[Rfam]
A member of the RNA family "Small nucleolar RNA Z278" from Helianthus annuus, 115 nucleotides long.
RNA sequence: UCCAAUGAUGAUGUAAUCCAAUUGUAAGAGGUACGUGGAUCCAAGACCCUGUUUACAGGGAGAACCACUUGGUUGAAGCUGUAUUUCAAUUGAUAUUACUGGAUUUUACUGAGGA
Numbered sequence: 001u002c003c004a005a006u007g008a009u010g011a012u013g014u015a016a017u018c019c020a021a022u023u024g025u026a027a028g029a030g031g032u033a034c035g036u037g038g039a040u041c042c043a044a045g046a047c048c049c050u051g052u053u054u055a056c057a058g059g060g061a062g063a064a065c066c067a068c069u070u071g072g073u074u075g076a077a078g079c080u081g082u083a084u085u086u087c088a089a090u091u092g093a094u095a096u097u098a099c100u101g102g103a104u105u106u107u108a109c110u111g112a113g114g115a
Base pairs, nucleotide, nucleotide: 001115002114003113047060048059049058050057051056

The source organism's lineage runs through Eukaryota, Euphyllophyta, Pentapetalae, Asteroideae and Helianthus. The literature on the family includes a 2003 paper in Nucleic Acids Res by Chen et al., "The high diversity of snoRNAs in plants: identification and comparative study of 120 snoRNA genes from Oryza sativa". About the family: snoZ278 is a C/D box small nucleolar RNA. Its methylation guide targets have not been reported. The family's RNA type in Rfam is C/D-box small nucleolar RNA. Rfam links the family to the GO terms nucleolus and RNA processing.